This 62-nucleotide RNA sequence from Centapoxvirus yokapox belongs to the Rfam family "Poxvirus AX element late mRNA cis-regulatory element". This family represents a cis-regulatory element present at the 3' ends of poxvirus late mRNAs and is known as the AX element.The AX element is involved in directing the efficient production and orientation-dependent formation of of late RNAs. Rfam links the family to the GO term RNA 3'-end processing. The family's consensus secondary structure is taken from published work.

RNA sequence: GAACUUUUUCACAAAAGACUUUAUCUAGUAAUUCUUCAUCAGAUAAUUCUGAAUUUGAAUGU
Numbered sequence: 001g002a003a004c005u006u007u008u009u010c011a012c013a014a015a016a017g018a019c020u021u022u023a024u025c026u027a028g029u030a031a032u033u034c035u036u037c038a039u040c041a042g043a044u045a046a047u048u049c050u051g052a053a054u055u056u057g058a059a060u061g062u
Stems, first nucleotide, its partner, number of pairs: 002020001005017005021058002023054002026051003030048004034042002
Notes
On this family, see Howard et al., Virology 1999: "A 43-nucleotide RNA cis-acting element governs the site-specific formation of the 3' end of a poxvirus late mRNA".